[Rfam]
RNA sequence: UUUGAAUACCGGAGGUACUUACUCCUCGACAGGUCAAUAGUCGGUGGAUGGUUAAGAAUACUAAGCGUAUGUUAAGUACGUCGCCCCGAUUAGAUCCCACUCAAUGAGUGGGAUUUUUUUAUUAA
Numbered sequence: 001u002u003u004g005a006a007u008a009c010c011g012g013a014g015g016u017a018c019u020u021a022c023u024c025c026u027c028g029a030c031a032g033g034u035c036a037a038u039a040g041u042c043g044g045u046g047g048a049u050g051g052u053u054a055a056g057a058a059u060a061c062u063a064a065g066c067g068u069a070u071g072u073u074a075a076g077u078a079c080g081u082c083g084c085c086c087c088g089a090u091u092a093g094a095u096c097c098c099a100c101u102c103a104a105u106g107a108g109u110g111g112g113a114u115u116u117u118u119u120u121a122u123u124a125a
Stems, first nucleotide, its partner, number of pairs: 008034003012027003038092006047085001049083002051061002065081006093115010
RNA: DUF3800-I RNA